This 221-nucleotide sequence from Arabidopsis thaliana belongs to the Rfam family "MIR854 microRNA precursor family".
RNA sequence: CAGAUGAAAUAGAUGAAGCGGAGUUUGACACGAGCAUGUCUCAUUUCAGUGAGCAUGUACCUCCAGCGAGGGAAAGCAAGAGUUUGAGUGAAGCUCACAGGAACAACAACAAGUUGCAGAAGUGGUGUAAGAAACAUGAUAAGUUACUUGCCAAGUGCCUCAAAGCUAUCAAGUUUCUGAAGGACAAGCUAAGCUGCUCCUCUACCACUACAGCUAUUCCG
Numbered sequence: 001c002a003g004a005u006g007a008a009a010u011a012g013a014u015g016a017a018g019c020g021g022a023g024u025u026u027g028a029c030a031c032g033a034g035c036a037u038g039u040c041u042c043a044u045u046u047c048a049g050u051g052a053g054c055a056u057g058u059a060c061c062u063c064c065a066g067c068g069a070g071g072g073a074a075a076g077c078a079a080g081a082g083u084u085u086g087a088g089u090g091a092a093g094c095u096c097a098c099a100g101g102a103a104c105a106a107c108a109a110c111a112a113g114u115u116g117c118a119g120a121a122g123u124g125g126u127g128u129a130a131g132a133a134a135c136a137u138g139a140u141a142a143g144u145u146a147c148u149u150g151c152c153a154a155g156u157g158c159c160u161c162a163a164a165g166c167u168a169u170c171a172a173g174u175u176u177c178u179g180a181a182g183g184a185c186a187a188g189c190u191a192a193g194c195u196g197c198u199c200c201u202c203u204a205c206c207a208c209u210a211c212a213g214c215u216a217u218u219c220c221g
Base pairs, nucleotide, nucleotide: 001221003219004218010210012208015205017203018202020200021199022198023197024196
Dot-bracket structure: (.((.....(.(..(.((.(((((...........................................................................................................................................................................))))).)).)..).).......)).)
Lineage of the source: Eukaryota > Viridiplantae > Embryophyta > Euphyllophyta > Arabidopsis. On this family, see Arteaga-Vazquez et al., Plant Cell 2006: "A family of microRNAs present in plants and animals". The family's consensus secondary structure was predicted with WAR.